[Rfam]
RNA sequence: UACUUCCAUUUAAGAAAUGAGAAAACUUGGUGGUGCCCAUCUCGUAUCAGCUGGGGACAAAGCAACCCUUCGUUUAACCCAGCUUGGCUUUUGGUCUGUGCCCAUGCCUGGUUCAUGACUUGGACAUAUGG
Numbered sequence: 001u002a003c004u005u006c007c008a009u010u011u012a013a014g015a016a017a018u019g020a021g022a023a024a025a026c027u028u029g030g031u032g033g034u035g036c037c038c039a040u041c042u043c044g045u046a047u048c049a050g051c052u053g054g055g056g057a058c059a060a061a062g063c064a065a066c067c068c069u070u071c072g073u074u075u076a077a078c079c080c081a082g083c084u085u086g087g088c089u090u091u092u093g094g095u096c097u098g099u100g101c102c103c104a105u106g107c108c109u110g111g112u113u114c115a116u117g118a119c120u121u122g123g124a125c126a127u128a129u130g131g
Base pairs, nucleotide, nucleotide: 001059004056005055006054007053008052010050011049013047019041021037024034026032072125073124074123075122076121086119088117092115093114094113096111097110098109100107101106